[Rfam]
RNA sequence: GGGGUCGUAGCGCAGUGGUAGCGCGUCCGCUUUGCAUGCGGAAGGUCUAGGGUUCGAUCCCCUACCUCUCCA
Numbered sequence: 001g002g003g004g005u006c007g008u009a010g011c012g013c014a015g016u017g018g019u020a021g022c023g024c025g026u027c028c029g030c031u032u033u034g035c036a037u038g039c040g041g042a043a044g045g046u047c048u049a050g051g052g053u054u055c056g057a058u059c060c061c062c063u064a065c066c067u068c069u070c071c072a
Stems, first nucleotide, its partner, number of pairs: 001071004007065001010024004026042005048064005
Shown here is a 72-nucleotide sequence from Didymella pomorum, a member of the family "tRNA". The source organism's lineage runs through Eukaryota, Dikarya, Pezizomycotina, Dothideomycetes and Didymella. Rfam links the family to the GO term triplet codon-amino acid adaptor activity. From the family's description: Transfer RNA (tRNA) molecules are approximately 80 nucleotides in length.